[Rfam]
RNA sequence: ACAUAUCAUAAGAAAAACAUUCGUAUAUUCUUAGUAUCAUGGUCUAAGAGUUUCUACUAGGAGCCGAUAAUUCCUAACUACGAAUGGGUAGGCUUUACUA
Numbered sequence: 001a002c003a004u005a006u007c008a009u010a011a012g013a014a015a016a017a018c019a020u021u022c023g024u025a026u027a028u029u030c031u032u033a034g035u036a037u038c039a040u041g042g043u044c045u046a047a048g049a050g051u052u053u054c055u056a057c058u059a060g061g062a063g064c065c066g067a068u069a070a071u072u073c074c075u076a077a078c079u080a081c082g083a084a085u086g087g088g089u090a091g092g093c094u095u096u097a098c099u100a
Base pairs, nucleotide, nucleotide: 018086019085020084021083022082023081024080025079029049030048031047032046033045034044058076059075060074061073062072063071

Record summary:
Shown here is a 100-nucleotide RNA sequence from Bacillus mesophilus, a member of the family "Purine riboswitch aptamer". The match comes from Rfam's covariance-model search (76 bits). The source organism's lineage runs through Bacteria, Bacillota, Bacilli, Caryophanales and Bacillus.